[Rfam]
RNA sequence: GCAAUAGAAUAGGCUUACAAGGGCGGUCGGCUACCUCUCGAUAGAAGGGAGGGAUGCCCAUAUGACAGUUAAAGACACAUUAACGCUAAUGAUUUCAUUCGCGACUUUGGUUGUUCUUAUACUAUCAUUCCACAACAAAAAGUAGACCGCCCUCGGCAAAGGUAACUGGUCUACUUUUUGUCCAUUAUUUUUCUGUCGCAGCCUACCGCCCUUAAAAGCGGCUAUUGCCCUGGAGUCGUGUUACACGCACGACUC
Numbered sequence: 001g002c003a004a005u006a007g008a009a010u011a012g013g014c015u016u017a018c019a020a021g022g023g024c025g026g027u028c029g030g031c032u033a034c035c036u037c038u039c040g041a042u043a044g045a046a047g048g049g050a051g052g053g054a055u056g057c058c059c060a061u062a063u064g065a066c067a068g069u070u071a072a073a074g075a076c077a078c079a080u081u082a083a084c085g086c087u088a089a090u091g092a093u094u095u096c097a098u099u100c101g102c103g104a105c106u107u108u109g110g111u112u113g114u115u116c117u118u119a120u121a122c123u124a125u126c127a128u129u130c131c132a133c134a135a136c137a138a139a140a141a142g143u144a145g146a147c148c149g150c151c152c153u154c155g156g157c158a159a160a161g162g163u164a165a166c167u168g169g170u171c172u173a174c175u176u177u178u179u180g181u182c183c184a185u186u187a188u189u190u191u192u193c194u195g196u197c198g199c200a201g202c203c204u205a206c207c208g209c210c211c212u213u214a215a216a217a218g219c220g221g222c223u224a225u226u227g228c229c230c231u232g233g234a235g236u237c238g239u240g241u242u243a244c245a246c247g248c249a250c251g252a253c254u255c
Base pairs, nucleotide, nucleotide: 001228002227003226004225005224007222010205011204012203013202014201015200018155020153021152022151023150024149025148026147027146028145034053035052037051038050039049064126065125067123068122069121078091079090101118103116104115158178159177160176206221207220208219209218233255234254235253236252237251238250239249240248241247
Annotation
The family of this 255-nucleotide RNA from Paenibacillus albidus is "BsrG". The family's consensus secondary structure was predicted with WAR. It is annotated as a small RNA. About the family: bsrE, bsrG and bsrH pair through intermolecular interactions with antisense sRNAs. They form type I toxin/antitoxin system that includes an mRNA encoding for a short, toxic peptide (bsrE, bsrG and bsrH) and an antitoxin that is comprised of an antisense RNA. bsrG encodes a 39-amino-acid toxin, and the 180 nucleotide antisense sRNA called SR4 acts as the antitoxin (they overlap by 123 nucleotides). SR4 interaction with the 3'UTR of bsrG RNA promotes bsrG degradation and inhibits its translation. BsrG interferes with cell envelope biosynthesis, causes membrane invaginations and delocalisation of the cell wall synthesis and initiates autolysis. bsrE RNA encodes 30 amino-acid toxin peptide. Rfam links the family to the GO terms toxin activity and autolysis.